[Rfam]
RNA sequence: GAAUCAAAAAUAAUUAAAGGAAGCAUGCCACAGUUGGCUAAAUCUGUCAUCAAACAGUUGCUAAUUGCCAGUGAUUCAUUCUUAAAUGAACACUAGUUUCCGAGAUCAAUUUUUUAUUAUUUAACGUAUACCUUCGGGUAUAUUGGGACAGGAUAGGAAGUCCGUUAUCUGUGUGCCCCUUUGCAAGGGUGAUAGAUUUGGGAUGUCGAAGAUAGUCUACAUUU
Numbered sequence: 001g002a003a004u005c006a007a008a009a010a011u012a013a014u015u016a017a018a019g020g021a022a023g024c025a026u027g028c029c030a031c032a033g034u035u036g037g038c039u040a041a042a043u044c045u046g047u048c049a050u051c052a053a054a055c056a057g058u059u060g061c062u063a064a065u066u067g068c069c070a071g072u073g074a075u076u077c078a079u080u081c082u083u084a085a086a087u088g089a090a091c092a093c094u095a096g097u098u099u100c101c102g103a104g105a106u107c108a109a110u111u112u113u114u115u116a117u118u119a120u121u122u123a124a125c126g127u128a129u130a131c132c133u134u135c136g137g138g139u140a141u142a143u144u145g146g147g148a149c150a151g152g153a154u155a156g157g158a159a160g161u162c163c164g165u166u167a168u169c170u171g172u173g174u175g176c177c178c179c180u181u182u183g184c185a186a187g188g189g190u191g192a193u194a195g196a197u198u199u200g201g202g203a204u205g206u207c208g209a210a211g212a213u214a215g216u217c218u219a220c221a222u223u224u
Stems, first nucleotide, its partner, number of pairs: 019077003032066007040058001044057004109216003143212002160204004167197004173193002177189004